[Rfam]
RNA sequence: CCUGUCCCAAGGGCCAUUGCAGGUGUGGCUGCUGAGUCACAUGCACAUCAGUAGGUGGCAGAGAGGAGAGAGGCUAUAUCUACUCUCAGUGUUCAAACCUAUGAACAUCUGAAUAAUUAGUAGCUUAACAUA
Number, nucleotide and partner (000 for none) at each position: 001c000002c061003u060004g059005u058006c057007c055008c054009a000010a052011g000012g000013g049014c000015c000016a000017u000018u000019g046020c000021a000022g000023g000024u041025g040026u039027g038028g037029c036030u000031g000032c000033u000034g000035a000036g029037u028038c027039a026040c025041a024042u000043g000044c000045a000046c019047a000048u000049c013050a000051g000052u010053a000054g008055g007056u000057g006058g005059c004060a003061g002062a000063g000064a000065g000066g000067a000068g129069a000070g000071a126072g125073g124074c123075u122076a121077u120078a000079u000080c000081u000082a000083c000084u000085c000086u112087c111088a110089g109090u107091g106092u105093u104094c103095a000096a000097a000098c000099c000100u000101a000102u000103g094104a093105a092106c091107a090108u000109c089110u088111g087112a086113a000114u000115a000116a000117u000118u000119a000120g077121u076122a075123g074124c073125u072126u071127a000128a000129c068130a000131u000132a000
A member of the RNA family "Small nucleolar RNA SNORA17" from Mus musculus, 132 nucleotides long.
From the family's description: snoRNA ACA 17 belongs to the H/ACA family of snoRNAs and is predicted to guide pseudouridylation of the 28S rRNA at positions U4659 and U4598.
The literature on the family includes a 1997 paper in J Mol Biol by Ofengand and Bakin, "Mapping to nucleotide resolution of pseudouridine residues in large subunit ribosomal RNAs from representative eukaryotes, prokaryotes, archaebacteria, mitochondria and chloroplasts".
Taxonomically the source falls in Mus (Eukaryota, Eumetazoa, Craniata, Eutheria).
Rfam links the family to the GO terms nucleolus and RNA processing.
The match comes from Rfam's covariance-model search (104 bits).
By type it is an H/ACA-box small nucleolar RNA.